Clostridiales-2 RNA: an 82-nucleotide RNA from Anaeromicrobium sediminis. The family's consensus secondary structure is taken from published work. NCBI's taxonomy places the organism under Bacteria, Bacillota, Clostridia, Peptostreptococcales, Anaeromicrobium. The family's RNA type in Rfam is small RNA. It scores 76 bits against the family's covariance model.
RNA sequence: AAAAAUAAGGGGGUGUGGGGGAAGAAUUCCCCUGCCUCUUUAAAGGAGGGUGCUCAGCAACUACAGUUGCGCCGAAGGGAAC
Numbered sequence: 001a002a003a004a005a006u007a008a009g010g011g012g013g014u015g016u017g018g019g020g021g022a023a024g025a026a027u028u029c030c031c032c033u034g035c036c037u038c039u040u041u042a043a044a045g046g047a048g049g050g051u052g053c054u055c056a057g058c059a060a061c062u063a064c065a066g067u068u069g070c071g072c073c074g075a076a077g078g079g080a081a082c
Stems, first nucleotide, its partner, number of pairs: 015035008057070005